[Rfam]
RNA: Plastid-rpl16 group II-D1 intron
RNA sequence: AAGAGCUUCGAGUCAAUAAAGACUGCGAAGAUUGACAAAAAAAUCAA
Numbered sequence: 001a002a003g004a005g006c007u008u009c010g011a012g013u014c015a016a017u018a019a020a021g022a023c024u025g026c027g028a029a030g031a032u033u034g035a036c037a038a039a040a041a042a043a044u045c046a047a
Stems, first nucleotide, its partner, number of pairs: 007041002012036006